The family of this 195-nucleotide sequence from Sphingobium amiense is "Manganese Mn2+ riboswitch aptamer (yybP-ykoY)".
The match comes from Rfam's covariance-model search (58 bits).
[Rfam]
RNA sequence: CGAUCCGUCAUCUGGGGAGUAGCCAGCCGUCCGGCGCAAAGCGGACGGGCCAUAUGUCAACAUAUUUGGCCGAGAGGCCAUGGCAUAUGGGACGCGGCAUCGCGCCGCAUCGGGCGAGACCAAUGGCAUCGACGCUUGUCUGCCCGGCCGGGUGGGAAGCGGCGGUGGCAUUGCGCUUUCUUCCCACCCGGCCCC
Number, nucleotide and partner (000 for none) at each position: 001c000002g000003a000004u000005c000006c000007g000008u000009c000010a000011u000012c000013u000014g000015g000016g000017g000018a000019g000020u000021a000022g000023c000024c000025a000026g000027c048028c047029g046030u045031c044032c043033g042034g000035c000036g000037c000038a000039a000040a000041g000042c033043g032044g031045a030046c029047g028048g027049g000050c090051c089052a088053u087054a086055u085056g084057u083058c082059a081060a000061c000062a000063u000064a000065u000066u000067u080068g079069g078070c077071c076072g000073a000074g000075a000076g071077g070078c069079c068080a067081u059082g058083g057084c056085a055086u054087a053088u052089g051090g050091g000092a000093c000094g000095c000096g000097g000098c000099a000100u000101c000102g000103c000104g000105c000106c000107g000108c000109a000110u000111c000112g000113g000114g000115c000116g000117a000118g000119a000120c000121c000122a000123a000124u000125g000126g000127c000128a000129u000130c000131g000132a000133c000134g000135c000136u000137u000138g000139u000140c000141u000142g000143c000144c000145c000146g000147g000148c000149c000150g000151g000152g000153u000154g000155g000156g000157a000158a000159g000160c000161g000162g000163c000164g000165g000166u000167g000168g000169c000170a000171u000172u000173g000174c000175g000176c000177u000178u000179u000180c000181u000182u000183c000184c000185c000186a000187c000188c000189c000190g000191g000192c000193c000194c000195c000

This RNA was originally discovered in E. coli during a large scale screen and was named SraF. The family was later found to exist upstream of related families of protein genes in many bacteria, including the the yybP and ykoK genes in B. subtilis. The specific functions of these proteins are unknown, but this structured RNA element may be involved in their genetic regulation as a riboswitch.